[Rfam]
RNA sequence: UAAUUAUGCCGUCAGGUGGAUGGCUCGGCUCAAGCGCUGAUGAAGGACGUGCCAAGCUGCGAUAAGCUCAGGGUAGGUGCAUGGAACCUAUGAACCUGAGAUUUCCUAAUGAGACCUCUUAGCACAUUUGUGCUGAUCAGUAAUGAUCGGGAACGCCCCGAAUUGAAACAUCUUAGUAGGGGCAGGAAGAGAAAUCGAAGAGAUGCCGUUAGUAAUGGCGAAUGAACACGGCACAGUUCAAACUGAAUCCCUCCAGUAAUGUGAGGGAGAUGUGGUGUUAUAGGAACUUUCUAAGAUUCCUAUCUUUUCUUAGCUGAACUUUUCUGGAACGUUAGACCAUAGAGUGUGAUAGUCACGUAAGCAAUGAAAAGAGGAAUUGGAAAUGUUCCUGAGUAUCGUGUGUUGGAAAUCACGCGAGAAUUUGGGAGGCACCAACUUCCAAAACUAAAUACGUCUUGAGACCGAUAGCGAAAUAGUAGGGUGACCGAAAACUGAAAAGUACCCCCAAAAGGGAGGUUAAAAGUGCCUGAAACCUGAUGGUGAUGGAGC
Numbered sequence: 001u002a003a004u005u006a007u008g009c010c011g012u013c014a015g016g017u018g019g020a021u022g023g024c025u026c027g028g029c030u031c032a033a034g035c036g037c038u039g040a041u042g043a044a045g046g047a048c049g050u051g052c053c054a055a056g057c058u059g060c061g062a063u064a065a066g067c068u069c070a071g072g073g074u075a076g077g078u079g080c081a082u083g084g085a086a087c088c089u090a091u092g093a094a095c096c097u098g099a100g101a102u103u104u105c106c107u108a109a110u111g112a113g114a115c116c117u118c119u120u121a122g123c124a125c126a127u128u129u130g131u132g133c134u135g136a137u138c139a140g141u142a143a144u145g146a147u148c149g150g151g152a153a154c155g156c157c158c159c160g161a162a163u164u165g166a167a168a169c170a171u172c173u174u175a176g177u178a179g180g181g182g183c184a185g186g187a188a189g190a191g192a193a194a195u196c197g198a199a200g201a202g203a204u205g206c207c208g209u210u211a212g213u214a215a216u217g218g219c220g221a222a223u224g225a226a227c228a229c230g231g232c233a234c235a236g237u238u239c240a241a242a243c244u245g246a247a248u249c250c251c252u253c254c255a256g257u258a259a260u261g262u263g264a265g266g267g268a269g270a271u272g273u274g275g276u277g278u279u280a281u282a283g284g285a286a287c288u289u290u291c292u293a294a295g296a297u298u299c300c301u302a303u304c305u306u307u308u309c310u311u312a313g314c315u316g317a318a319c320u321u322u323u324c325u326g327g328a329a330c331g332u333u334a335g336a337c338c339a340u341a342g343a344g345u346g347u348g349a350u351a352g353u354c355a356c357g358u359a360a361g362c363a364a365u366g367a368a369a370a371g372a373g374g375a376a377u378u379g380g381a382a383a384u385g386u387u388c389c390u391g392a393g394u395a396u397c398g399u400g401u402g403u404u405g406g407a408a409a410u411c412a413c414g415c416g417a418g419a420a421u422u423u424g425g426g427a428g429g430c431a432c433c434a435a436c437u438u439c440c441a442a443a444a445c446u447a448a449a450u451a452c453g454u455c456u457u458g459a460g461a462c463c464g465a466u467a468g469c470g471a472a473a474u475a476g477u478a479g480g481g482u483g484a485c486c487g488a489a490a491a492c493u494g495a496a497a498a499g500u501a502c503c504c505c506c507a508a509a510a511g512g513g514a515g516g517u518u519a520a521a522a523g524u525g526c527c528u529g530a531a532a533c534c535u536g537a538u539g540g541u542g543a544u545g546g547a548g549c
Base pairs, nucleotide, nucleotide: 007542008541009540010539011538012537013536014535015534016533022527023492027463028462029460030459031458032457033456034455035453036452044107045106046105047104048061049060050059067100068099069098070097071096072095076088077087078086111120112119113118136147137146138145139144154185155183156182157181158180159179165172166171195201196200205232206231207230208229209228215223216222235446236445237444238443243275244274245273253263254261255260288383289382290381297376298375299374300373313362314361315360319335321334324331338342344356345355346354396417397416398415399414400413401412402411424440425439426438427437428436479486480485
Rfam assigns this 549-nucleotide part of an RNA from Methanococcoides burtonii to the family "Archaeal large subunit ribosomal RNA".